[Rfam]
RNA: mir-344 microRNA precursor family
RNA sequence: CAUGCAGUCAGGCUACUGGCUACAGUCCAGCUCCUAGCUGGAUUUAGCCAAAGUCUGACUGUAAA
Dot-bracket structure: ......(((.((((..((((((.(..(((((.....))))).).)))))).)))).)))......